Record summary:
A member of the RNA family "SAM (S-adenosyl methionine) riboswitch aptamer" from Frankineae bacterium MT45, 113 nucleotides long. On this family, see Weinberg et al., RNA 2008: "The aptamer core of SAM-IV riboswitches mimics the ligand-binding site of SAM-I riboswitches". The family has 40 seed sequences and 2,360 matches in Rfam 15.1. NCBI's taxonomy places the organism under Bacteria, Bacillati, Actinomycetota, Actinomycetes, Frankiales. SAM-IV is a mRNA element that regulates gene expression via direct sensing of S-adenosylmethionine (SAM or AdoMet). SAM-IV riboswitches share conserved nucleotide positions with the previously described SAM-I riboswitches sequence analysis and molecular recognition experiments suggest that SAM-I and SAM-IV riboswitches share similar ligand binding sites, but have different scaffolds.
RNA sequence: UGUCACGAGUGCCAGUGUCAAGCCCCGGCUAGCUGGCCGGCAACCCUCCACCGCGGUGGGGUGCCCCGGGUGAAGACAAGGUCGACCCUGAUCGGGGUCGGCAAGCGCGGGAU
Numbered sequence: 001u002g003u004c005a006c007g008a009g010u011g012c013c014a015g016u017g018u019c020a021a022g023c024c025c026c027g028g029c030u031a032g033c034u035g036g037c038c039g040g041c042a043a044c045c046c047u048c049c050a051c052c053g054c055g056g057u058g059g060g061g062u063g064c065c066c067c068g069g070g071u072g073a074a075g076a077c078a079a080g081g082u083c084g085a086c087c088c089u090g091a092u093c094g095g096g097g098u099c100g101g102c103a104a105g106c107g108c109g110g111g112a113u
Base pairs, nucleotide, nucleotide: 001078002077003076004075009038011037012036013035014034015033016032021030022029039065040064041063044061045060046059048056049055081102082101083100084099085098086097087096088095089094